The record is a 179-nucleotide RNA from Pseudolactococcus hodotermopsidis, which matches "Lysine riboswitch aptamer" in Rfam. A search with the family's covariance model found it, with a score of 69 bits. Taxonomically the source falls in Pseudolactococcus (Bacteria, Bacillati, Bacillota, Lactobacillales).
RNA sequence: GAGUUAAUUAGAGGUUGCAGAUGCGAAAAAUGAUAAUUGAGUGGUGGACACAACGACAUUAUCAGGCGGCGCAGUUGCCGAAAGGGAGAUUUACCACAAAAAUCUUGCCUUGGGUCGUUAGGUUAAAGCCUGCGAACUGUCUUUUGCUAUUAUUUAGCAAGAGGUGAGCUAAUCAAAUC
Numbered sequence: 001g002a003g004u005u006a007a008u009u010a011g012a013g014g015u016u017g018c019a020g021a022u023g024c025g026a027a028a029a030a031u032g033a034u035a036a037u038u039g040a041g042u043g044g045u046g047g048a049c050a051c052a053a054c055g056a057c058a059u060u061a062u063c064a065g066g067c068g069g070c071g072c073a074g075u076u077g078c079c080g081a082a083a084g085g086g087a088g089a090u091u092u093a094c095c096a097c098a099a100a101a102a103u104c105u106u107g108c109c110u111u112g113g114g115u116c117g118u119u120a121g122g123u124u125a126a127a128g129c130c131u132g133c134g135a136a137c138u139g140u141c142u143u144u145u146g147c148u149a150u151u152a153u154u155u156a157g158c159a160a161g162a163g164g165u166g167a168g169c170u171a172a173u174c175a176a177a178u179c
Stems, first nucleotide, its partner, number of pairs: 007173005017078004022073004031064007082111004086106007112138002115135004120131004140164009